This 205-nucleotide RNA from Ruminococcus flavefaciens belongs to the Rfam family "Group II catalytic intron D1-D4-5". Group II introns are found in rRNA, tRNA and mRNA of organelles in fungi, plants and protists, and also in mRNA in bacteria.
RNA sequence: UAGAACUAUUAUUCUGAUGAAUCGAAUGAGGGAGUAACGUCCUGAAAGGUUCACGUUAAAACUACGGACGGCUAUGCAGUGUGAAAUGCAGAGGUCGUAAGCCCGUGGAAGUCGUGCGAGAGCAGUCCUAACGAAGAAAUUUAUUUCAGACGAGGAAAGUGCCGCAGAGGUGCGGUGUACUGCCCAUAGUGCGGUCGGCGGUGCA
Numbered sequence: 001u002a003g004a005a006c007u008a009u010u011a012u013u014c015u016g017a018u019g020a021a022u023c024g025a026a027u028g029a030g031g032g033a034g035u036a037a038c039g040u041c042c043u044g045a046a047a048g049g050u051u052c053a054c055g056u057u058a059a060a061a062c063u064a065c066g067g068a069c070g071g072c073u074a075u076g077c078a079g080u081g082u083g084a085a086a087u088g089c090a091g092a093g094g095u096c097g098u099a100a101g102c103c104c105g106u107g108g109a110a111g112u113c114g115u116g117c118g119a120g121a122g123c124a125g126u127c128c129u130a131a132c133g134a135a136g137a138a139a140u141u142u143a144u145u146u147c148a149g150a151c152g153a154g155g156a157a158a159g160u161g162c163c164g165c166a167g168a169g170g171u172g173c174g175g176u177g178u179a180c181u182g183c184c185c186a187u188a189g190u191g192c193g194g195u196c197g198g199c200g201g202u203g204c205a
Stems, first nucleotide, its partner, number of pairs: 018053006031043002034040001054197002057194001064106004068098006075090004080085001113193005122183005127155003133151001159178008